[Rfam]
RNA: Small nucleolar RNA SNORD94
Nucleotides: 145
Base pairs, nucleotide, nucleotide: 001145002144003143004142005141
Number, partner (000 for none) and nucleotide at each position: 001145g002144c003143a004142g005141c006000a007000g008000u009000g010000a011000u012000g013000a014000u015000u016000g017000g018000c019000g020000c021000a022000g023000g024000g025000g026000u027000a028000c029000g030000g031000a032000c033000c034000u035000c036000a037000g038000c039000u040000a041000g042000a043000u044000c045000a046000u047000g048000g049000g050000a051000g052000c053000u054000g055000a056000g057000u058000g059000u060000g061000a062000g063000u064000u065000a066000u067000c068000u069000g070000u071000c072000u073000u074000c075000c076000a077000g078000c079000a080000u081000u082000g083000c084000u085000g086000g087000c088000a089000u090000g091000u092000g093000g094000c095000u096000a097000g098000c099000u100000u101000c102000c103000u104000g105000g106000u107000g108000a109000c110000a111000g112000g113000c114000u115000c116000a117000c118000a119000c120000g121000a122000g123000a124000a125000c126000u127000u128000c129000g130000c131000c132000u133000u134000a135000c136000a137000c138000u139000g140000a141005g142004c143003u144002g145001c